The record is a 247-nucleotide RNA from Heliornis fulica, which matches "Small nucleolar RNA SNORD17" in Rfam. The family has 19 seed sequences and 1,015 matches in Rfam 15.1. The literature on the family includes a 2001 paper in EMBO J by Huttenhofer et al., "RNomics: an experimental approach that identifies 201 candidates for novel, small, non-messenger RNAs in mouse". Gene Ontology terms of the family: RNA processing and nucleolus. Taxonomically the source falls in Heliornis (Eukaryota, Amniota, Neognathae, Gruiformes). From the family's description: The snoRNA HBI-43 belongs to the C/D family of snoRNAs, guiding 2'O-ribose methylation at position U3797 of the 28S rRNA. Pseudouridylation in position U3797 is predicted to be guided by the H/ACA snoRNA ACA48. The match comes from Rfam's covariance-model search (121 bits).
RNA sequence: GUGAGGUGAUGAUGAAGUUUAUCCAUUCUCUGAGUGCAGUGGUGCUGCUCUCCUGCAGCACCCCGAUUCCUGUUCUAGGGUCUGGGUGCUGUGCAGCCUCCAGAGACCUUCCAGUCUCCCAGUGUCCUACUGGGGGCUGCUGUGGUCUGUGGCUGGCUGCCUGCAGGAGUGCAAUACUGCUGGCAGGGUUGGAGCCCCUCUCUGGGGGGCUCUGCCCUCGCUGAGAUGAGGGAUGAUGUCUGAUCAC
Numbered sequence: 001g002u003g004a005g006g007u008g009a010u011g012a013u014g015a016a017g018u019u020u021a022u023c024c025a026u027u028c029u030c031u032g033a034g035u036g037c038a039g040u041g042g043u044g045c046u047g048c049u050c051u052c053c054u055g056c057a058g059c060a061c062c063c064c065g066a067u068u069c070c071u072g073u074u075c076u077a078g079g080g081u082c083u084g085g086g087u088g089c090u091g092u093g094c095a096g097c098c099u100c101c102a103g104a105g106a107c108c109u110u111c112c113a114g115u116c117u118c119c120c121a122g123u124g125u126c127c128u129a130c131u132g133g134g135g136g137c138u139g140c141u142g143u144g145g146u147c148u149g150u151g152g153c154u155g156g157c158u159g160c161c162u163g164c165a166g167g168a169g170u171g172c173a174a175u176a177c178u179g180c181u182g183g184c185a186g187g188g189u190u191g192g193a194g195c196c197c198c199u200c201u202c203u204g205g206g207g208g209g210c211u212c213u214g215c216c217c218u219c220g221c222u223g224a225g226a227u228g229a230g231g232g233a234u235g236a237u238g239u240c241u242g243a244u245c246a247c
Stems, first nucleotide, its partner, number of pairs: 010246004017239002020236001023232002026230003030225002034221002039180006046173003050169008059088005065082001068080004093160006106146002112139005118134007182216008197207002